[Rfam]
RNA sequence: AGGCCUGCAGGAAGAGAGGCAGGGUCAGAUCCACAGCCUCUGUGGCUGCUGUUGAUCAGCUGUUGCCUCUCUCUCUAUCUCUG
Numbered sequence: 001a002g003g004c005c006u007g008c009a010g011g012a013a014g015a016g017a018g019g020c021a022g023g024g025u026c027a028g029a030u031c032c033a034c035a036g037c038c039u040c041u042g043u044g045g046c047u048g049c050u051g052u053u054g055a056u057c058a059g060c061u062g063u064u065g066c067c068u069c070u071c072u073c074u075c076u077a078u079c080u081c082u083g
Stems, first nucleotide, its partner, number of pairs: 010075002013072010024061001026059001028057004034051004
The family of this 83-nucleotide sequence from Myotis brandtii is "mir-574 microRNA precursor family". The family is grouped with related families in Rfam's "mir-574 microRNA precursor clan". Its family is annotated with RISC complex and miRNA-mediated post-transcriptional gene silencing in the Gene Ontology. NCBI's taxonomy places the organism under Eukaryota, Eutheria, Boreoeutheria, Yangochiroptera, Myotis. It scores 82 bits against the family's covariance model.